[Rfam]
Ribosomal protein L13 leader: a 60-nucleotide RNA from Oceanobacillus sp. J11TS1. Taxonomically the source falls in Oceanobacillus (Bacteria, Bacillota, Bacilli, Bacillaceae). Pairs were carried over by alignment from the consensus structure, which was predicted with CMfinder. It is annotated as a cis-regulatory leader. From the family's description: This family is a putative r-protein leader autoregulatory structure found in B. subtilis and other low-GC Gram-positive bacteria. It is located in the 5' untranslated regions of mRNAs encoding the L13-S9 (rplM-rpsI) ribosomal protein operon. A search with the family's covariance model found it, with a score of 49 bits.

RNA sequence: GGCAUUUUAUUUCUAAACCAUGAUUAGCCCCGGAAUCUAAUUAUGUUAAGAAUAAAAAUA
Dot-bracket structure: .....(((((((......(((((((((.........)))))))))....)))))))....
Numbered sequence: 001g002g003c004a005u006u007u008u009a010u011u012u013c014u015a016a017a018c019c020a021u022g023a024u025u026a027g028c029c030c031c032g033g034a035a036u037c038u039a040a041u042u043a044u045g046u047u048a049a050g051a052a053u054a055a056a057a058a059u060a
Stems, first nucleotide, its partner, number of pairs: 006056007019045009